The record is an 885-nucleotide sequence from Citrobacter freundii, which matches "antisense RNA of rseC mRNA" in Rfam. Pairs were carried over by alignment from the consensus structure, which was predicted with RNAfold. The match comes from Rfam's covariance-model search (658 bits). For this family Rfam cites "The novel cis-encoded antisense RNA AsrC positively regulates the expression of rpoE-rseABC operon and thus enhances the motility of Salmonella enterica serovar typhi" (Zhang et al., Front Microbiol, 2015).
RNA sequence: ACCUGCGCUUCCAUUUCACGGUCAGACAGGCCACCGCAGAUCUGGAUAAUACGGUCAGACAGCGUUGAUUUACCGUGGUCGAUGUGAGCUAUGAUUGAAAAGUUACGUAUGUUCUUCAUAUAGUGUAAUUAUUGUGCCUUACGCCUGCCUGGGCAGGCUUUGAGAAGUCGCUGUUCUGAGCUUAACGUCGGUUUAAGUGAAACGCCGCAUUCUACACUACAACGCUGAGGCGAGGAAAUGUUCAUAGAGCAAGGAUAGCGGGAACUGGAAACAACUUAGCAAAGUCAGUGAAACUUUUACCGAAGUACGGCGAAAGUGCCCUAUCUGGCCUACGUAGUAACGGUCCUGUAGGCCUGAUAAGCGCAGCGCCAUCAGGCAUAUAUAUCACUGGUGUGUUUCGACGCGAAGAAGGUCAGGCGGGAGAGCGACAUUGAGAAUCACCGGUUGCCAGGCCUCACGUUCAGCCAGCUUGCGUGAGAAACCACGAGCAAUCAGGAAUCCACCCACACCGCCCAGUAUCGCACCGCUUAACGCGGCGAUAUCGCUGCCAAACAACACCUGGAACAAUGCGGCAAAAACAAACAGCCCCGCCAGCGGAGACAGAUAGACUAACAUUGCCGAGCCCAACAGGCUGCCUUCAGCAAUGCCUAGCUCAACUUUCUGACCGGGAGCCAGAGGUUCAACGCUAGGCACCACAAUGGUGUGCGUUGUCUGCGGUCCCAGUUUAUUCAGCACACGGCUUCCGCAUCCGGCCCUUGAGGCACAGCUGCUGCACGACGCUUUAACGUCACAGCUGACUGUCGCCAGGCCAUUUUGCCAGGAAACAACCGUUGCCCACUCUUUGAUCAUUGUGCAGCCCUGAACUUGAUAUUGUCCGCGAUGCGC
Dot-bracket structure: ...(..(.(((((.(((..(.(((..(((((....((((((..(((..(((((....(((....((((((......(.(((...))).)...))))))...))).)))))..)))............)))....))).....)))))..))).).(((.((..((..(((......)))..)))).))).((((....).))).((((..(((.(.((((..(((....)))..).........))).)...)))..))))))).))))).....)..)................................................((.((.((.(((.((((.......))).......((..((((.((..((((......(..(((((((((....))))......((((.(((((...(((................((((((.((((.((.(((((...(((.....(.(.........(.(..............).)....(.((..((...((.....((...((.((....(((...............)))......)).))...))......))...))....)).).............((.(((.(((((.....)).....))).))).)).....).)......))).....))))..).))...(((((..(.((......)).)..)))))))))))))))............(((..((.((...((.((.(....).)).))..)).)).)))..((((......))))...))).....))))).)))).....))))).....).....))))............)).)))).....)).....).)).....)))..)).))
Numbered sequence: 001a002c003c004u005g006c007g008c009u010u011c012c013a014u015u016u017c018a019c020g021g022u023c024a025g026a027c028a029g030g031c032c033a034c035c036g037c038a039g040a041u042c043u044g045g046a047u048a049a050u051a052c053g054g055u056c057a058g059a060c061a062g063c064g065u066u067g068a069u070u071u072a073c074c075g076u077g078g079u080c081g082a083u084g085u086g087a088g089c090u091a092u093g094a095u096u097g098a099a100a101a102g103u104u105a106c107g108u109a110u111g112u113u114c115u116u117c118a119u120a121u122a123g124u125g126u127a128a129u130u131a132u133u134g135u136g137c138c139u140u141a142c143g144c145c146u147g148c149c150u151g152g153g154c155a156g157g158c159u160u161u162g163a164g165a166a167g168u169c170g171c172u173g174u175u176c177u178g179a180g181c182u183u184a185a186c187g188u189c190g191g192u193u194u195a196a197g198u199g200a201a202a203c204g205c206c207g208c209a210u211u212c213u214a215c216a217c218u219a220c221a222a223c224g225c226u227g228a229g230g231c232g233a234g235g236a237a238a239u240g241u242u243c244a245u246a247g248a249g250c251a252a253g254g255a256u257a258g259c260g261g262g263a264a265c266u267g268g269a270a271a272c273a274a275c276u277u278a279g280c281a282a283a284g285u286c287a288g289u290g291a292a293a294c295u296u297u298u299a300c301c302g303a304a305g306u307a308c309g310g311c312g313a314a315a316g317u318g319c320c321c322u323a324u325c326u327g328g329c330c331u332a333c334g335u336a337g338u339a340a341c342g343g344u345c346c347u348g349u350a351g352g353c354c355u356g357a358u359a360a361g362c363g364c365a366g367c368g369c370c371a372u373c374a375g376g377c378a379u380a381u382a383u384a385u386c387a388c389u390g391g392u393g394u395g396u397u398u399c400g401a402c403g404c405g406a407a408g409a410a411g412g413u414c415a416g417g418c419g420g421g422a423g424a425g426c427g428a429c430a431u432u433g434a435g436a437a438u439c440a441c442c443g444g445u446u447g448c449c450a451g452g453c454c455u456c457a458c459g460u461u462c463a464g465c466c467a468g469c470u471u472g473c474g475u476g477a478g479a480a481a482c483c484a485c486g487a488g489c490a491a492u493c494a495g496g497a498a499u500c501c502a503c504c505c506a507c508a509c510c511g512c513c514c515a516g517u518a519u520c521g522c523a524c525c526g527c528u529u530a531a532c533g534c535g536g537c538g539a540u541a542u543c544g545c546u547g548c549c550a551a552a553c554a555a556c557a558c559c560u561g562g563a564a565c566a567a568u569g570c571g572g573c574a575a576a577a578a579c580a581a582a583c584a585g586c587c588c589c590g591c592c593a594g595c596g597g598a599g600a601c602a603g604a605u606a607g608a609c610u611a612a613c614a615u616u617g618c619c620g621a622g623c624c625c626a627a628c629a630g631g632c633u634g635c636c637u638u639c640a641g642c643a644a645u646g647c648c649u650a651g652c653u654c655a656a657c658u659u660u661c662u663g664a665c666c667g668g669g670a671g672c673c674a675g676a677g678g679u680u681c682a683a684c685g686c687u688a689g690g691c692a693c694c695a696c697a698a699u700g701g702u703g704u705g706c707g708u709u710g711u712c713u714g715c716g717g718u719c720c721c722a723g724u725u726u727a728u729u730c731a732g733c734a735c736a737c738g739g740c741u742u743c744c745g746c747a748u749c750c751g752g753c754c755c756u757u758g759a760g761g762c763a764c765a766g767c768u769g770c771u772g773c774a775c776g777a778c779g780c781u782u783u784a785a786c787g788u789c790a791c792a793g794c795u796g797a798c799u800g801u802c803g804c805c806a807g808g809c810c811a812u813u814u815u816g817c818c819a820g821g822a823a824a825c826a827a828c829c830g831u832u833g834c835c836c837a838c839u840c841u842u843u844g845a846u847c848a849u850u851g852u853g854c855a856g857c858c859c860u861g862a863a864c865u866u867g868a869u870a871u872u873g874u875c876c877g878c879g880a881u882g883c884g885c
Stems, first nucleotide, its partner, number of pairs: 004279001007276001009270005015264003020154001022152003027147005036137003039130003044115003049110005058104003065098006077089001079087003156189003160185002164183002168179003191203003194199001205261004211255003215249001217247003220235001223232003328885002331882002334878002337876001338870002341867001342354003362861002366854004371849002375835004385826001388820005393404004411810004416805005424795003443719006450713004455678002458675001459672004466663003474654001476652001486505001488503001510599001512597002516591002521586002528578002533573002536570002542562003613646002616643003620639003623631002682709005689702001691700002732773003737769002740766002745762002748759002751756001776789004